[Rfam]
RNA sequence: CAAUAUGACGGGCACACUUAUUGAAAAAUAAGGCCGCAAAACUACAGGGGCUAAACUGUACAUCUUCUUGUACAAUAUGCCAGCCAGCUGCCAGU
Dot-bracket structure: ...........((...((((((....))))))...))..(.((...(((((.....((((((......))))))....)))..)))).)......
Numbered sequence: 001c002a003a004u005a006u007g008a009c010g011g012g013c014a015c016a017c018u019u020a021u022u023g024a025a026a027a028a029u030a031a032g033g034c035c036g037c038a039a040a041a042c043u044a045c046a047g048g049g050g051c052u053a054a055a056c057u058g059u060a061c062a063u064c065u066u067c068u069u070g071u072a073c074a075a076u077a078u079g080c081c082a083g084c085c086a087g088c089u090g091c092c093a094g095u
Stems, first nucleotide, its partner, number of pairs: 012037002017032006040089001042087002047085002049081003057074006
Rfam assigns this 95-nucleotide RNA sequence from Paenibacillus sp. PvR098 to the family "c-di-GMP-I riboswitch aptamer". The match comes from Rfam's covariance-model search (60 bits).